[Rfam]
Nucleotides: 104
Stems, first nucleotide, its partner, number of pairs: 006099007020029003031084003034080002038078003045070006
Number, partner (000 for none) and nucleotide at each position: 001000u002000g003000a004000u005000a006099c007098u008097u009096u010095g011094u012093a013000a014000g015000a016000g017000a018000g019000a020029g021028u022027c023000g024000u025000a026000a027022g028021a029020c030000c031084a032083c033082c034080g035079a036000a037000g038078a039077g040076g041000a042000a043000a044000c045070a046069u047068u048067g049066a050065a051000g052000g053000g054000c055000c056000u057000g058000g059000u060000c061000g062000c063000c064000a065050u066049u067048c068047a069046g070045u071000c072000g073000a074000a075000a076040c077039u078038u079035u080034c081000a082033g083032g084031u085000a086000a087000a088000a089000g090000g091000a092000c093012u094011a095010c096009a097008a098007a099006g100000a101000g102000g103000a104000c